[Rfam]
RNA sequence: AAACGUUCACCUCGCCCAGCGAGGCGCAGAUCGACUCAGGCCAUGGAACGGGGGCUGAG
Numbered sequence: 001a002a003a004c005g006u007u008c009a010c011c012u013c014g015c016c017c018a019g020c021g022a023g024g025c026g027c028a029g030a031u032c033g034a035c036u037c038a039g040g041c042c043a044u045g046g047a048a049c050g051g052g053g054g055c056u057g058a059g
Stems, first nucleotide, its partner, number of pairs: 004050005010024005035059005041053002